This 185-nucleotide RNA sequence from Corynebacterium endometrii belongs to the Rfam family "FMN riboswitch aptamer (RFN element)". Lineage of the source: Bacteria > Actinomycetota > Mycobacteriales > Corynebacteriaceae > Corynebacterium. From the family's description: The RFN element is a highly conserved domain that is found frequently in the 5'-untranslated regions of prokaryotic mRNAs that encode for flavin mononucleotide (FMN) biosynthesis and transport proteins. The match comes from Rfam's covariance-model search (99 bits).
RNA sequence: UCGCAUUCUCAGGGCGGGGUGAAAUUCCCCACCGGCGGUGAUGUCAGCACUAAUUGAACACUUUCGUUUCACGCUGAAUAAGUCCGCGAGCGCUUCCUGUCACACGGUGGUCGUGUGGGGGAAGGACAGCAGACCCGGUUGGAAUCCGGGACCGACGGUCAUAGUCCGGAUGGGAGAGAAGGAGU
Numbered sequence: 001u002c003g004c005a006u007u008c009u010c011a012g013g014g015c016g017g018g019g020u021g022a023a024a025u026u027c028c029c030c031a032c033c034g035g036c037g038g039u040g041a042u043g044u045c046a047g048c049a050c051u052a053a054u055u056g057a058a059c060a061c062u063u064u065c066g067u068u069u070c071a072c073g074c075u076g077a078a079u080a081a082g083u084c085c086g087c088g089a090g091c092g093c094u095u096c097c098u099g100u101c102a103c104a105c106g107g108u109g110g111u112c113g114u115g116u117g118g119g120g121g122a123a124g125g126a127c128a129g130c131a132g133a134c135c136c137g138g139u140u141g142g143a144a145u146c147c148g149g150g151a152c153c154g155a156c157g158g159u160c161a162u163a164g165u166c167c168g169g170a171u172g173g174g175a176g177a178g179a180a181g182g183a184g185u
Base pairs, nucleotide, nucleotide: 004182006180007179008178009177010176017029018028019027031165032164033154034153035087036086037085038084090130091129134150135149136148137147138146156168157167158166
Dot-bracket structure: ...(.(((((......(((.......))).[[((((((.............................................))))..((.....................................))...(((((.......)))))..)).(((.....]]))).......))))).)...